[Rfam]
RNA sequence: AAUUUAGUUUUCUAGGGUUCCGCAAUUUAAAGUUGGCAGGUCCGAGAGAAGACGCACAGUUGACUGUGUACACGGAAGGAUAAAAGCCUGGGAGAU
Numbered sequence: 001a002a003u004u005u006a007g008u009u010u011u012c013u014a015g016g017g018u019u020c021c022g023c024a025a026u027u028u029a030a031a032g033u034u035g036g037c038a039g040g041u042c043c044g045a046g047a048g049a050a051g052a053c054g055c056a057c058a059g060u061u062g063a064c065u066g067u068g069u070a071c072a073c074g075g076a077a078g079g080a081u082a083a084a085a086g087c088c089u090g091g092g093a094g095a096u
Stems, first nucleotide, its partner, number of pairs: 007053006015043002020040002022037001023035005054069006071091001073094001077089003
RNA: Guanidine-I riboswitch aptamer
Organism: Clostridium sp. Maddingley MBC34-26